[Rfam]
Nucleotides: 059
Base pairs, nucleotide, nucleotide: 008026009025010024011023012022013021032052033051034050035049036048037047038046039045
Number, partner (000 for none) and nucleotide at each position: 001000u002000g003000u004000c005000u006000c007000c008026u009025c010024c011023a012022c013021c014000u015000c016000c017000u018000c019000c020000u021013g022012g023011u024010g025009g026008a027000u028000u029000u030000c031000a032052u033051g034050g035049c036048c037047a038046g039045c040000c041000c042000c043000g044000c045039g046038c047037u048036g049035g050034c051033c052032a053000u054000u055000u056000u057000u058000u059000u
About this RNA: A member of the RNA family "Betaproteobacteria toxic small RNA" from Pandoraea terrae, 59 nucleotides long. The match comes from Rfam's covariance-model search (54 bits). The family's consensus secondary structure was predicted with WAR. Rfam's curators write: Overexpression in amino aid rich medium attenuates growth, suggesting role in repressing amino acid intake and metabolism.